[Rfam]
RNA sequence: GGUCAUGAGUGCCAGCGCCAAGCCCCGGCUCGCUGGCCGGCAACCCUCCUGUCGCGGUGGGGUGCCCCGGGUGAGGACCUGGCCGGCGGUGCCGAUCGCCGCCGGCAAGCGCGGACA
Numbered sequence: 001g002g003u004c005a006u007g008a009g010u011g012c013c014a015g016c017g018c019c020a021a022g023c024c025c026c027g028g029c030u031c032g033c034u035g036g037c038c039g040g041c042a043a044c045c046c047u048c049c050u051g052u053c054g055c056g057g058u059g060g061g062g063u064g065c066c067c068c069g070g071g072u073g074a075g076g077a078c079c080u081g082g083c084c085g086g087c088g089g090u091g092c093c094g095a096u097c098g099c100c101g102c103c104g105g106c107a108a109g110c111g112c113g114g115a116c117a
Stems, first nucleotide, its partner, number of pairs: 001079004009038001011037006021030002039066003044062003048057002082106010
The record is a 117-nucleotide sequence from Flexivirga aerilata, which matches "SAM (S-adenosyl methionine) riboswitch aptamer" in Rfam. The organism belongs to Flexivirga, within Bacteria. Clan: SAM clan.